[Rfam]
RNA sequence: GUUGCUUCAUAAUGGUGAACUCACUUAUAUUCAAUGAGUGAAAUUCAAGUUUCCGGAGCAUAAAUUAAAAUAAUUUUUUUUGGAAUUGUUACCAGUAUUAAACAGCUCGAUGUGAAUUUAAUCGCAUCGAUUGUUACCUGUCUCCUGGCACAUUU
Numbered sequence: 001g002u003u004g005c006u007u008c009a010u011a012a013u014g015g016u017g018a019a020c021u022c023a024c025u026u027a028u029a030u031u032c033a034a035u036g037a038g039u040g041a042a043a044u045u046c047a048a049g050u051u052u053c054c055g056g057a058g059c060a061u062a063a064a065u066u067a068a069a070a071u072a073a074u075u076u077u078u079u080u081u082g083g084a085a086u087u088g089u090u091a092c093c094a095g096u097a098u099u100a101a102a103c104a105g106c107u108c109g110a111u112g113u114g115a116a117u118u119u120a121a122u123c124g125c126a127u128c129g130a131u132u133g134u135u136a137c138c139u140g141u142c143u144c145c146u147g148g149c150a151c152a153u154u155u
Stems, first nucleotide, its partner, number of pairs: 003060006016047004021041005092148004097143001104135003108129005
The family of this 155-nucleotide RNA sequence from Artemisia annua is "small nucleolar RNA snoR137". The base pairs follow the family's consensus structure, which was predicted with RNAalifold. Gene Ontology terms of the family: nucleolus and RNA processing. The match comes from Rfam's covariance-model search (104 bits).